[Rfam]
RNA: Small nucleolar RNA SNORD63
Organism: Nothoprocta perdicaria
RNA sequence: GUGCUGUGAUGUAACUGUCAACACAUCAUUCUGAAAGGGAAUUGUGUGGAGACCUCUUCCAACUGAGCACC
Numbered sequence: 001g002u003g004c005u006g007u008g009a010u011g012u013a014a015c016u017g018u019c020a021a022c023a024c025a026u027c028a029u030u031c032u033g034a035a036a037g038g039g040a041a042u043u044g045u046g047u048g049g050a051g052a053c054c055u056c057u058u059c060c061a062a063c064u065g066a067g068c069a070c071c
Base pairs, nucleotide, nucleotide: 001070002069003068004067
Dot-bracket structure: ((((..............................................................)))).